[Rfam]
RNA sequence: AUGCAAAUUCUCUGGCAGGAAUCUCUGCAUGGGUCUUGAAUAAGAGCAUGGACCUUGGAGGGAGGGGAGGCCUUGCCUCCCUCUCCUCUCCAAAUCCAUCAGUUUUGUCCAUGUUUUGGCCACCAGCUUCGCUCCUAGGUGCAUGACCGCAAAUUCCGGCCAUGUCCAGUGGGGCUUCUAGCUCAAAGCAUGGCAAACCGGCAAGUCACGAAUCGGCGAUGGGAAACUCCAGCAAGGAUCUCC
Numbered sequence: 001a002u003g004c005a006a007a008u009u010c011u012c013u014g015g016c017a018g019g020a021a022u023c024u025c026u027g028c029a030u031g032g033g034u035c036u037u038g039a040a041u042a043a044g045a046g047c048a049u050g051g052a053c054c055u056u057g058g059a060g061g062g063a064g065g066g067g068a069g070g071c072c073u074u075g076c077c078u079c080c081c082u083c084u085c086c087u088c089u090c091c092a093a094a095u096c097c098a099u100c101a102g103u104u105u106u107g108u109c110c111a112u113g114u115u116u117u118g119g120c121c122a123c124c125a126g127c128u129u130c131g132c133u134c135c136u137a138g139g140u141g142c143a144u145g146a147c148c149g150c151a152a153a154u155u156c157c158g159g160c161c162a163u164g165u166c167c168a169g170u171g172g173g174g175c176u177u178c179u180a181g182c183u184c185a186a187a188g189c190a191u192g193g194c195a196a197a198c199c200g201g202c203a204a205g206u207c208a209c210g211a212a213u214c215g216g217c218g219a220u221g222g223g224a225a226a227c228u229c230c231a232g233c234a235a236g237g238a239u240c241u242c243c
Stems, first nucleotide, its partner, number of pairs: 057091005102198003106195003121188001225241001228238002
RNA: Early nodulin 40
Organism: Elaeis guineensis